SAH (S-adenosyl-L-homocysteine) riboswitch aptamer: a 79-nucleotide RNA from Nitrosovibrio tenuis. The literature on the family includes a 2008 paper in Mol Cell by Wang et al., "Riboswitches that sense S-adenosylhomocysteine and activate genes involved in coenzyme recycling".
RNA sequence: CCGGCUGAGGAGCGCUGCAACGGGCCUAGUCCCGCGAGGCUCGGCGGAGGAAGGAUCGCAACAACGGCGCUCGUUCAUU
Numbered sequence: 001c002c003g004g005c006u007g008a009g010g011a012g013c014g015c016u017g018c019a020a021c022g023g024g025c026c027u028a029g030u031c032c033c034g035c036g037a038g039g040c041u042c043g044g045c046g047g048a049g050g051a052a053g054g055a056u057c058g059c060a061a062c063a064a065c066g067g068c069g070c071u072c073g074u075u076c077a078u079u
Base pairs, nucleotide, nucleotide: 002047004045005044006043007042008041021034022033023032024031
The family has 52 seed sequences and 1,354 matches in Rfam 15.1.